[Rfam]
RNA sequence: UACAUACAAGGGCAAACCCGCCGAAAGACGGGGGCGCAAAGCCAGGGCCUAAAGCACUGCUAUGGCCGACCGGCUGCUAUG
Number, nucleotide and partner (000 for none) at each position: 001u000002a000003c000004a000005u000006a000007c000008a000009a000010g000011g000012g037013c036014a000015a000016a000017c032018c031019c030020g029021c000022c027023g000024a000025a000026a000027g022028a000029c020030g019031g018032g017033g000034g000035c000036g013037c012038a000039a000040a075041g074042c073043c072044a000045g071046g070047g066048c065049c064050u000051a000052a000053a000054g060055c059056a000057c000058u000059g055060c054061u000062a000063u000064g049065g048066c047067c000068g000069a000070c046071c045072g043073g042074c041075u040076g000077c000078u000079a000080u000081g000
c-di-GMP-I riboswitch aptamer: an 81-nucleotide RNA sequence from Acidaminobacter hydrogenoformans. NCBI's taxonomy places the organism under Bacteria, Bacillota, Peptostreptococcales, Acidaminobacteraceae, Acidaminobacter hydrogenoformans.